The family of this 182-nucleotide sequence from Acetivibrio clariflavus is "glmS glucosamine-6-phosphate activated ribozyme aptamer". It is annotated as a riboswitch. Rfam describes the family as follows. This entry contains a glucosamine-6-phosphate activated ribozyme that is found in the mRNA for GlmS. GlmS is an enzyme that uses fructose-6-phosphate and glutamine to generate glucosamine-6-phosphate.
[Rfam]
RNA sequence: GACUUGGAAAGAGCGCCAGAGCGUAUUUAGCAUACGUUGACGAGGAGAAGGAGGUCAUCGGAAAUUUUGUAUCCGAUGAGUUAUCGAAAUAUUCGGCGGAAACCUUCCGGUAUACCACUAUCGAUAGGAUCUAUACAAAAACUGCAGGCAACUGCAGAACAAAAAUGGGUCCGCGUGGUUAA
Numbered sequence: 001g002a003c004u005u006g007g008a009a010a011g012a013g014c015g016c017c018a019g020a021g022c023g024u025a026u027u028u029a030g031c032a033u034a035c036g037u038u039g040a041c042g043a044g045g046a047g048a049a050g051g052a053g054g055u056c057a058u059c060g061g062a063a064a065u066u067u068u069g070u071a072u073c074c075g076a077u078g079a080g081u082u083a084u085c086g087a088a089a090u091a092u093u094c095g096g097c098g099g100a101a102a103c104c105u106u107c108c109g110g111u112a113u114a115c116c117a118c119u120a121u122c123g124a125u126a127g128g129a130u131c132u133a134u135a136c137a138a139a140a141a142c143u144g145c146a147g148g149c150a151a152c153u154g155c156a157g158a159a160c161a162a163a164a165a166u167g168g169g170u171c172c173g174c175g176u177g178g179u180u181a182a
Base pairs, nucleotide, nucleotide: 020038021037022036023035024034025033026032047107048106049105050104051103058096059095060094061093108123109122110121111120112119127172128171129170130169131168132167133166142157143156144155145154146153147152